RNA sequence: GGCCAGGGGGAAGCAAAAAGUAUAAGAUGAAACAUAUAGUAUGGGCAAGCAGGGAGUUGGAAAGAUUCGCACUUAACCCUGGCC
Numbered sequence: 001g002g003c004c005a006g007g008g009g010g011a012a013g014c015a016a017a018a019a020g021u022a023u024a025a026g027a028u029g030a031a032a033c034a035u036a037u038a039g040u041a042u043g044g045g046c047a048a049g050c051a052g053g054g055a056g057u058u059g060g061a062a063a064g065a066u067u068c069g070c071a072c073u074u075a076a077c078c079c080u081g082g083c084c
Base pairs, nucleotide, nucleotide: 001084002083003082004081005080006079007078008077
RNA: HIV gag stem loop 3 (GSL3)